About this RNA:
This 41-nucleotide sequence from Solanum commersonii belongs to the Rfam family "MIR7991 microRNA precursor family". The family's consensus secondary structure was predicted with RNAalifold.
[Rfam]
RNA sequence: GAGGUCGGAAUUUUUAAUGAAUUACAAUAAAAACCGACCUC
Numbered sequence: 001g002a003g004g005u006c007g008g009a010a011u012u013u014u015u016a017a018u019g020a021a022u023u024a025c026a027a028u029a030a031a032a033a034c035c036g037a038c039c040u041c
Base pairs, nucleotide, nucleotide: 001041002040003039004038005037006036007035008034011033012032013031014030015029016028018026019025